[Rfam]
Nucleotides: 164
Base pairs, nucleotide, nucleotide: 011149012148013147014146018049019048020047021046022045023044024043050144051143052142053141054140055139060072061071073129074128075127081104082103084101085100086099087098088097089096090095107123108122109121110120
Number, partner (000 for none) and nucleotide at each position: 001000g002000u003000c004000c005000g006000g007000a008000c009000g010000c011149c012148g013147c014146c015000g016000a017000a018049c019048u020047g021046g022045u023044g024043g025000c026000c027000g028000g029000u030000g031000c032000a033000c034000a035000u036000g037000g038000c039000c040000g041000g042000c043024c044023c045022a046021c047020c048019g049018g050144a051143c052142c053141g054140g055139g056000g057000a058000c059000c060072c061071a062000c063000c064000g065000c066000a067000g068000c069000a070000c071061u072060g073129g074128g075127g076000u077000g078000a079000a080000g081104c082103g083000g084101g085100g086099c087098g088097a089096u090095c091000a092000g093000c094000u095090g096089a097088u098087c099086g100085u101084c102000a103082c104081g105000c106000c107123g108122g109121g110120c111000u112000a113000c114000u115000u116000c117000c118000u119000g120110g121109c122108c123107c124000g125000a126000a127075c128074c129073c130000g131000u132000c133000a134000g135000c136000u137000a138000a139055c140054u141053c142052g143051g144050u145000a146014g147013g148012c149011g150000g151000c152000c153000a154000u155000g156000g157000g158000a159000a160000g161000a162000a163000a164000c
The family of this 164-nucleotide RNA from Goekera deserti is "c-di-AMP riboswitch aptamer (ydaO/yuaA leader)".